The family of this 95-nucleotide sequence from Persicimonas caeni is "TPP riboswitch aptamer (THI element)".
A search with the family's covariance model found it, with a score of 65 bits.
The organism belongs to Persicimonas, within Bacteria.
RNA sequence: AAUAGUCGCCAGGGGUGCUGCACCAGCAGCUGAGAUUAUACCCUGAGAACCUGAACCAGUUAGCACUGGCGGAGGGAGCGCGACGCACACGAGUG
Numbered sequence: 001a002a003u004a005g006u007c008g009c010c011a012g013g014g015g016u017g018c019u020g021c022a023c024c025a026g027c028a029g030c031u032g033a034g035a036u037u038a039u040a041c042c043c044u045g046a047g048a049a050c051c052u053g054a055a056c057c058a059g060u061u062a063g064c065a066c067u068g069g070c071g072g073a074g075g076g077a078g079c080g081c082g083a084c085g086c087a088c089a090c091g092a093g094u095g
Stems, first nucleotide, its partner, number of pairs: 006083004011044004016038001017030005050075003056069004